[Rfam]
RNA: mir-17 microRNA precursor family
Organism: Betta splendens
RNA sequence: ACUGUAGUGUCAAAGUGCUUACAGUGCAGGUAGUUCUGUAAAAUCUACUGCAGUGUAGGCACUUUAAACACUAUUCU
Numbered sequence: 001a002c003u004g005u006a007g008u009g010u011c012a013a014a015g016u017g018c019u020u021a022c023a024g025u026g027c028a029g030g031u032a033g034u035u036c037u038g039u040a041a042a043a044u045c046u047a048c049u050g051c052a053g054u055g056u057a058g059g060c061a062c063u064u065u066a067a068a069c070a071c072u073a074u075u076c077u
Base pairs, nucleotide, nucleotide: 004074005073006072007071009069010068013064014063015062016061017060018059019058020057021056022055023054025052026051027050029049030048031047032046033045